[Rfam]
Rfam assigns this 80-nucleotide RNA sequence from Alligator mississippiensis to the family "Mammalian CPEB3 ribozyme". The organism belongs to Alligator, within Eukaryota.
RNA sequence: AGAGGUUGCAAGUUCAAGGCCAUAGCAAAUGCAUUCACAAUGUUGCCAUGUCAGAUCCCAAUGAAUUUGCAAAUUCUGCU
Number, nucleotide and partner (000 for none) at each position: 001a000002g000003a000004g000005g000006u000007u000008g000009c000010a000011a000012g000013u048014u000015c000016a000017a000018g047019g046020c045021c000022a000023u000024a080025g079026c078027a077028a000029a075030u000031g043032c042033a041034u000035u000036c000037a000038c000039a000040a000041u033042g032043u031044u000045g020046c019047c018048a013049u000050g000051u000052c069053a068054g067055a066056u065057c000058c063059c000060a000061a000062u000063g058064a000065a056066u055067u054068u053069g052070c000071a000072a000073a000074u000075u029076c000077u027078g026079c025080u024
The family's consensus secondary structure is taken from published work.